Rfam assigns this 118-nucleotide sequence from Parashewanella curva to the family "Group II catalytic intron D1-D4-2". NCBI's taxonomy places the organism under Bacteria, Pseudomonadota, Gammaproteobacteria, Alteromonadales, Parashewanella. From the family's description: Group II introns are found in rRNA, tRNA and mRNA of organelles in fungi, plants and protists, and also in mRNA in bacteria. The match comes from Rfam's covariance-model search (114 bits). Rfam 15.1 lists 1,231 matches to the family in 625 species. Its family is annotated with Group II intron splicing in the Gene Ontology.

RNA sequence: GAGGGUAGGUCCCUCGAAGUCGCCUUACAGGAGGAGGCUUCAAACCACCUUAAGCGGCGAAGGUAAAGAGCUUUGGUCGUGAGCGUUAAGGAAAAGGCAGAGCUUGACUCUGUCAGGU
Numbered sequence: 001g002a003g004g005g006u007a008g009g010u011c012c013c014u015c016g017a018a019g020u021c022g023c024c025u026u027a028c029a030g031g032a033g034g035a036g037g038c039u040u041c042a043a044a045c046c047a048c049c050u051u052a053a054g055c056g057g058c059g060a061a062g063g064u065a066a067a068g069a070g071c072u073u074u075g076g077u078c079g080u081g082a083g084c085g086u087u088a089a090g091g092a093a094a095a096g097g098c099a100g101a102g103c104u105u106g107a108c109u110c111u112g113u114c115a116g117g118u
Stems, first nucleotide, its partner, number of pairs: 001015005016041006023034004046117001048091006054080002057077002061073004096114006